[Rfam]
RNA sequence: AGGCUCUAUUUCCUGGGAGGUGGACUCAGCCUACCCCACUUCCCCUCAGCAGAGCCUAGAAUAAAGGGGCCAGGCCUCCUCCCCUAUGGGAGAGGGGUUUGAAGAAGGAGCCUCACCCAGGCUAGCCUGGCUUCACAUUU
Number, nucleotide and partner (000 for none) at each position: 001a000002g056003g055004c054005u053006c052007u051008a000009u000010u000011u000012c000013c000014u000015g044016g043017g042018a041019g040020g039021u038022g037023g036024a000025c000026u000027c000028a000029g000030c000031c000032u000033a000034c000035c000036c023037c022038a021039c020040u019041u018042c017043c016044c015045c000046u000047c000048a000049g000050c000051a007052g006053a005054g004055c003056c002057u000058a000059g000060a000061a000062u000063a000064a000065a000066g134067g133068g132069g131070c130071c000072a128073g127074g126075c000076c000077u000078c121079c120080u119081c000082c000083c000084c000085u000086a000087u000088g113089g112090g111091a000092g000093a000094g000095g000096g000097g000098u000099u000100u000101g000102a000103a000104g000105a000106a000107g000108g000109a000110g000111c090112c089113u088114c000115a000116c000117c000118c000119a080120g079121g078122c000123u000124a000125g000126c074127c073128u072129g000130g070131c069132u068133u067134c066135a000136c000137a000138u000139u000140u000
Overview: Rfam assigns this 140-nucleotide RNA from Rattus norvegicus to the family "Small Cajal body specific RNA 21". Rfam's curators put it in the seed alignment. scaRNAs are a specific class of small nuclear RNAs which localise to the Cajal bodies and guide the modification of RNA polymerase II transcribed spliceosomal RNAs U1, U2, U4, U5 and U12. ACA68 (SCARNA21) is a member of the H/ACA class of snoRNAs that guide the sites of modification of uridines to pseudouridines. This snoRNA was identified by computational screening and its expression in mouse experimentally verified by Northern blot and primer extension analysis. The family's RNA type in Rfam is small Cajal body RNA.